The family of this 80-nucleotide sequence from Clostridium sp. CAG:413 is "S10-Clostridia ribosomal protein leader". For this family Rfam cites "Discovery of 20 novel ribosomal leader candidates in bacteria and archaea" (Eckert and Weinberg, BMC Microbiol, 2020). It is annotated as a cis-regulatory leader. The match comes from Rfam's covariance-model search (42 bits).

[Rfam]
RNA sequence: GAUAUGCGUUGAUGCAGGAGGUGGCCGCUCUCAGAAGCGGGAAAUUUCUGCGGAGUAUGUCCGAUUUUCAAACCGGGCGA
Numbered sequence: 001g002a003u004a005u006g007c008g009u010u011g012a013u014g015c016a017g018g019a020g021g022u023g024g025c026c027g028c029u030c031u032c033a034g035a036a037g038c039g040g041g042a043a044a045u046u047u048c049u050g051c052g053g054a055g056u057a058u059g060u061c062c063g064a065u066u067u068u069c070a071a072a073c074c075g076g077g078c079g080a
Base pairs, nucleotide, nucleotide: 014051015050016049018048019047020046021045025040026039027038028037029036058079059078060077061076062075063074065072